[Rfam]
RNA sequence: CCCUGACAGCCUCAUGGUGAGGCUGACAUUAGCCACGACAGGAGAAUUAAAUG
Numbered sequence: 001c002c003c004u005g006a007c008a009g010c011c012u013c014a015u016g017g018u019g020a021g022g023c024u025g026a027c028a029u030u031a032g033c034c035a036c037g038a039c040a041g042g043a044g045a046a047u048u049a050a051a052u053g
Base pairs, nucleotide, nucleotide: 002042003041004040005039007025008024009023010022011021
A member of the RNA family "Mu-gpT-DE RNA", 53 nucleotides long. The family's RNA type in Rfam is small RNA.